Rfam assigns this 110-nucleotide RNA sequence from Peribacillus psychrosaccharolyticus to the family "epsC RNA". Taxonomically the source falls in Peribacillus (Bacteria, Bacillati, Bacillota, Bacillaceae). By type it is a cis-regulatory element. A search with the family's covariance model found it, with a score of 107 bits. The family has 30 seed sequences and 450 matches in Rfam 15.1.

RNA sequence: UGGUUAUGUCUCCUUGCCGUUAUCAACGGAGGCACUCGAUCAUAUUGUGGGUUGAAAAACCUUAGACGCUUGUCGUCGAGAAUGUGGUGAGAGGAGGGGUUAGAUGCCCC
Numbered sequence: 001u002g003g004u005u006a007u008g009u010c011u012c013c014u015u016g017c018c019g020u021u022a023u024c025a026a027c028g029g030a031g032g033c034a035c036u037c038g039a040u041c042a043u044a045u046u047g048u049g050g051g052u053u054g055a056a057a058a059a060c061c062u063u064a065g066a067c068g069c070u071u072g073u074c075g076u077c078g079a080g081a082a083u084g085u086g087g088u089g090a091g092a093g094g095a096g097g098g099g100u101u102a103g104a105u106g107c108c109c110c
Stems, first nucleotide, its partner, number of pairs: 001019004007034007035093003039088008049062005065077004096110005